[Rfam]
RNA: Group I catalytic intron
Organism: Pestalotiopsis fici
RNA sequence: CCGCCACCUUUGGUGGCUGAAACACGGGCUGCGCCCGAGGAAAAUUAGGGUUUUGAUCAAAAAAGAUGAAGUGAACCUUUGUCUAGUUAUAGUUCUACCUGUAACGAAACUUUCAAAUUGCGGGGAAGUCUUAAAGACAAAUCUACCAAGUUAAUAUAGUAAUAUGAUUAAUGGCACAGGUAAUGACUCGUGGUAUGGUAAAAACGAUUUGUAUAUGUAGAUAAUCCGCAGCCAAGUACCAAAUAUAAAUUAUUUGGUAUGCAGUUCAUCGACUAAAUGGAAGUUGGUUUAUUUUUAAUAAGCUUAAGAUAUAGUCAGUUUUUAUAUGAAAAUAUAAA
Numbered sequence: 001c002c003g004c005c006a007c008c009u010u011u012g013g014u015g016g017c018u019g020a021a022a023c024a025c026g027g028g029c030u031g032c033g034c035c036c037g038a039g040g041a042a043a044a045u046u047a048g049g050g051u052u053u054u055g056a057u058c059a060a061a062a063a064a065g066a067u068g069a070a071g072u073g074a075a076c077c078u079u080u081g082u083c084u085a086g087u088u089a090u091a092g093u094u095c096u097a098c099c100u101g102u103a104a105c106g107a108a109a110c111u112u113u114c115a116a117a118u119u120g121c122g123g124g125g126a127a128g129u130c131u132u133a134a135a136g137a138c139a140a141a142u143c144u145a146c147c148a149a150g151u152u153a154a155u156a157u158a159g160u161a162a163u164a165u166g167a168u169u170a171a172u173g174g175c176a177c178a179g180g181u182a183a184u185g186a187c188u189c190g191u192g193g194u195a196u197g198g199u200a201a202a203a204a205c206g207a208u209u210u211g212u213a214u215a216u217g218u219a220g221a222u223a224a225u226c227c228g229c230a231g232c233c234a235a236g237u238a239c240c241a242a243a244u245a246u247a248a249a250u251u252a253u254u255u256g257g258u259a260u261g262c263a264g265u266u267c268a269u270c271g272a273c274u275a276a277a278u279g280g281a282a283g284u285u286g287g288u289u290u291a292u293u294u295u296u297a298a299u300a301a302g303c304u305u306a307a308g309a310u311a312u313a314g315u316c317a318g319u320u321u322u323u324a325u326a327u328g329a330a331a332a333u334a335u336a337a338a
Stems, first nucleotide, its partner, number of pairs: 001019001003017006108285005114279002119230006129221003231265002236260004245253001269317001271316005287303007323336005